This 71-nucleotide RNA sequence from Archangium sp. Cb G35 belongs to the Rfam family "SAH (S-adenosyl-L-homocysteine) riboswitch aptamer". The family's consensus secondary structure is taken from published work.

RNA sequence: CACCCUGAGGAGCGCUGCAACGGGGGUCCCUCCCCGCCAGGCUCAGGUUCGUGCAACGGCGCUCGCUGACU
Dot-bracket structure: .(.(((((............((((((....))))))......))))).)......................